[Rfam]
RNA sequence: CUAGGAAGAGGUAGUAGGUUGCAUAGUUUUGGGGCAGUUAUUUUGCCCAGGAGGAGGUAACUAUACAACUCACUGCCUUUCUUGG
Numbered sequence: 001c002u003a004g005g006a007a008g009a010g011g012u013a014g015u016a017g018g019u020u021g022c023a024u025a026g027u028u029u030u031g032g033g034g035c036a037g038u039u040a041u042u043u044u045g046c047c048c049a050g051g052a053g054g055a056g057g058u059a060a061c062u063a064u065a066c067a068a069c070u071c072a073c074u075g076c077c078u079u080u081c082u083u084g085g
Stems, first nucleotide, its partner, number of pairs: 001085006008079008017070005023064005032048004
A member of the RNA family "let-7 microRNA precursor family" from Leptobrachium leishanense, 85 nucleotides long. It scores 70 bits against the family's covariance model. For this family Rfam cites "Control of developmental timing in animals" (Rougvie, Nat Rev Genet, 2001). The family is grouped with related families in Rfam's "let-7 microRNA precursor clan". Its family is annotated with miRNA-mediated post-transcriptional gene silencing and RISC complex in the Gene Ontology. Rfam describes the family as follows. This family represents the microRNAs (miRNA) let-7 and mir-98. let-7 was identified from a study of developmental timing in C. elegans, and was later shown to be part of a much larger class of non-coding RNAs termed miRNAs.